[Rfam]
RNA sequence: UUGGAAAAGACAAUGAUGUACUUCCAAGCACAUAUCUGAAAUAUGUGUGUGGACAGCACUAAACUGAGUCUUUUCCAC
Numbered sequence: 001u002u003g004g005a006a007a008a009g010a011c012a013a014u015g016a017u018g019u020a021c022u023u024c025c026a027a028g029c030a031c032a033u034a035u036c037u038g039a040a041a042u043a044u045g046u047g048u049g050u051g052g053a054c055a056g057c058a059c060u061a062a063a064c065u066g067a068g069u070c071u072u073u074u075c076c077a078c
Base pairs, nucleotide, nucleotide: 002077003076004075005074006073008071009070010069011068

A member of the RNA family "Small nucleolar RNA SNORD121A" from Octodon degus, 78 nucleotides long.
The source organism's lineage runs through Eukaryota, Opisthokonta, Sarcopterygii, Amniota and Octodon.
Rfam links the family to the GO terms nucleolus and RNA processing.
The base pairs follow the family's consensus structure, which was predicted with WAR.
The family's RNA type in Rfam is C/D-box small nucleolar RNA.
The match comes from Rfam's covariance-model search (74 bits).
A reference for the family is Yang et al. (2006), "snoSeeker: an advanced computational package for screening of guide and orphan snoRNA genes in the human genome", Nucleic Acids Res.